[Rfam]
RNA: MIR1507 microRNA precursor family
Organism: Lupinus angustifolius
RNA sequence: CCAUGUUUGGUAGAGAUGUUUGGAAUGAGAGAUGGGAAAUUCGUUUUUCUAAUACACUCUCCCUCUCUCACUCCAUACAUCGUCUCGCAAACAUAGU
Dot-bracket structure: ....(((((..((((((((.((((.(((((((.((((......................))))))))))).)))).))))).)))..))))).....